This 76-nucleotide RNA sequence from Hymenochirus boettgeri belongs to the Rfam family "mir-216 microRNA precursor family".
For this family Rfam cites "Identification of novel chicken microRNAs and analysis of their genomic organization" (Shao et al., Gene, 2008).
Clan: mir-216 clan.
Pairs were carried over by alignment from the consensus structure, which was predicted with WAR.
RNA sequence: AACUGGCUUAAUCUCAGCUGGCAACUGUGAGUAGUUUAUAUGGUUUCUCACAGUAGUCUCUGAGGUUAUGCUAAAC
Dot-bracket structure: ...((((.(((((((((..((((..((((((...............)))))).).))).))))))))).))))...